[Rfam]
RNA sequence: GUUUAUCUGGCGAGUUUUGCCUCGCGGCAAAACAUCUUAUAUUGUAUGUGCUUUUUCACUUCGCUGCAAAAGCACCGGCUAAAAACUUUUUUAAAAAUUUGAUAAUUUUUUCAAAACUUUUUAUGGAGG
Numbered sequence: 001g002u003u004u005a006u007c008u009g010g011c012g013a014g015u016u017u018u019g020c021c022u023c024g025c026g027g028c029a030a031a032a033c034a035u036c037u038u039a040u041a042u043u044g045u046a047u048g049u050g051c052u053u054u055u056u057c058a059c060u061u062c063g064c065u066g067c068a069a070a071a072g073c074a075c076c077g078g079c080u081a082a083a084a085a086c087u088u089u090u091u092u093a094a095a096a097a098u099u100u101g102a103u104a105a106u107u108u109u110u111u112c113a114a115a116a117c118u119u120u121u122u123a124u125g126g127a128g129g
Base pairs, nucleotide, nucleotide: 012036013035014033015032016031017030018029019028020027021026048075049074050073051072052071053070054069055068080123081122082121083120084119085118087116088115090114091113094109095108096107097106098105099104

Rfam assigns this 129-nucleotide sequence from Treponema pedis to the family "TD-1 RNA". It scores 81 bits against the family's covariance model. The family has 28 seed sequences and 147 matches in Rfam 15.1. Rfam classes the family as a cis-regulatory element. The family's consensus secondary structure is taken from published work. Clan: TD (Treponema denticola) motifs.